[Rfam]
RNA: c-di-AMP riboswitch aptamer (ydaO/yuaA leader)
RNA sequence: CGAGCGAAAUCGCCGAGUCGGUCGGGCCUUGGCCGGGCCGAGCGGGGGACCCAAAUCCCUGGGGCGAAUGGCGUGGACCACCCGGGUCCGCUACCGCCUAGCGCCGUCAGGCGCGAGCCCGUCAGCUAACCCCGUAGGCGCACCGCACAGGAGAU
Numbered sequence: 001c002g003a004g005c006g007a008a009a010u011c012g013c014c015g016a017g018u019c020g021g022u023c024g025g026g027c028c029u030u031g032g033c034c035g036g037g038c039c040g041a042g043c044g045g046g047g048g049a050c051c052c053a054a055a056u057c058c059c060u061g062g063g064g065c066g067a068a069u070g071g072c073g074u075g076g077a078c079c080a081c082c083c084g085g086g087u088c089c090g091c092u093a094c095c096g097c098c099u100a101g102c103g104c105c106g107u108c109a110g111g112c113g114c115g116a117g118c119c120c121g122u123c124a125g126c127u128a129a130c131c132c133c134g135u136a137g138g139c140g141c142a143c144c145g146c147a148c149a150g151g152a153g154a155u
Base pairs, nucleotide, nucleotide: 011140012139013138014137018041019040020039021038022037023036042135043134044133045132046131047130052061053060062120063119064118070098071097072096073095101114102113103112104111
Dot-bracket structure: ..........((((...((((((............))))))((((((....((......))(((.....((((.....................))))..((((......))))...))).........)))))).))))...............